[Rfam]
RNA sequence: GUUCUUUUGAAGGAUAGCAGCAUAAGCCUGUCUCAAAAUAAUUCUGCAGUGAGACAGGUUCAUGCUGCUAUCGUUCCAAAGAGG
Dot-bracket structure: ..(((((.(((.(((((((((((.(.(((((((((..............))))))))).).))))))))))).))).)))))..
The family of this 84-nucleotide RNA sequence from Homo sapiens is "mir-4524 microRNA precursor family". The source organism's lineage runs through Eukaryota, Vertebrata, Tetrapoda, Boreoeutheria and Homo.